[Rfam]
RNA sequence: GCAGCACUGUUUUCCACUCGGAUCGUCCGGCACGUUCCUGCCGGUGGAAAGGAAGUCU
Numbered sequence: 001g002c003a004g005c006a007c008u009g010u011u012u013u014c015c016a017c018u019c020g021g022a023u024c025g026u027c028c029g030g031c032a033c034g035u036u037c038c039u040g041c042c043g044g045u046g047g048a049a050a051g052g053a054a055g056u057c058u
Stems, first nucleotide, its partner, number of pairs: 010051007027044006
The family of this 58-nucleotide RNA from Actinoplanes sp. TBRC 11911 is "msiK RNA". By type it is a cis-regulatory element. A search with the family's covariance model found it, with a score of 52 bits. The family's consensus secondary structure is taken from published work.